[Rfam]
Nucleotides: 136
Stems, first nucleotide, its partner, number of pairs: 011120004018033005034115006044054002055100003063075004078094004
Number, partner (000 for none) and nucleotide at each position: 001000g002000c003000c004000a005000g006000g007000c008000c009000g010000c011120c012119g013118c014117c015000u016000a017000a018033u019032c020031g021030c022029c023000c024000c025000u026000c027000g028000g029022g030021g031020c032019g033018a034115g035114u036113c037112g038111g039110g040000g041000a042000a043000c044054c045053a046000c047000c048000g049000u050000u051000c052000c053045u054044g055100g056099g057098g058000u059000g060000a061000a062000u063075c064074c065073g066072c067000a068000c069000g070000u071000u072066g073065c074064g075063g076000u077000a078094g079093g080092g081091a082000u083000c084000g085000c086000u087000u088000c089000c090000g091081u092080c093079c094078c095000g096000a097000a098057c099056c100055c101000g102000u103000c104000a105000g106000c107000u108000a109000a110039c111038c112037c113036g114035g115034u116000c117014g118013g119012c120011g121000g122000c123000c124000a125000c126000a127000g128000g129000a130000a131000g132000g133000a134000a135000c136000a